[Rfam]
RNA sequence: GCUGGAGUAGUCUAGUGGUUAUGAUGUCGCCUUUACACGGCGAAGGUCGUGGGUUCGACUCCCACCUCUAGUA
Numbered sequence: 001g002c003u004g005g006a007g008u009a010g011u012c013u014a015g016u017g018g019u020u021a022u023g024a025u026g027u028c029g030c031c032u033u034u035a036c037a038c039g040g041c042g043a044a045g046g047u048c049g050u051g052g053g054u055u056c057g058a059c060u061c062c063c064a065c066c067u068c069u070a071g072u073a
Stems, first nucleotide, its partner, number of pairs: 001072007010025003027043005049065005